This 129-nucleotide RNA sequence from Dehalococcoides mccartyi belongs to the Rfam family "Ribosomal protein L10 leader". By type it is a cis-regulatory leader. It is one of the family's seed sequences. From the family's description: This family is a putative r-protein leader autoregulatory structure found in B. subtilis and other low-GC Gram-positive bacteria. It is located in the 5' untranslated regions of mRNAs encoding ribosomal proteins L10 and L12 (rplJ-rplL). A Rho-independent transcription terminator structure that is probably involved in regulation is included at the 3' end. Taxonomically the source falls in Dehalococcoides mccartyi (Bacteria, Bacillati, Dehalococcoidaceae, Dehalococcoides). Pairs were carried over by alignment from the consensus structure, which was predicted with CMfinder.
RNA sequence: AUUUAUAAUUGAAUAUUUCCUGAGACGUGGGUGCCGUUUGGCUUAAUGCAUUGCCUGCCGAGGAUACAAGACUUUUUAAGGGUUUUCUAAGUCCUUGUGCUUUGGCAUAAGGACUUUAUUUUUUUAGAA
Numbered sequence: 001a002u003u004u005a006u007a008a009u010u011g012a013a014u015a016u017u018u019c020c021u022g023a024g025a026c027g028u029g030g031g032u033g034c035c036g037u038u039u040g041g042c043u044u045a046a047u048g049c050a051u052u053g054c055c056u057g058c059c060g061a062g063g064a065u066a067c068a069a070g071a072c073u074u075u076u077u078a079a080g081g082g083u084u085u086u087c088u089a090a091g092u093c094c095u096u097g098u099g100c101u102u103u104g105g106c107a108u109a110a111g112g113a114c115u116u117u118a119u120u121u122u123u124u125u126a127g128a129a
Stems, first nucleotide, its partner, number of pairs: 027058006033042003091114010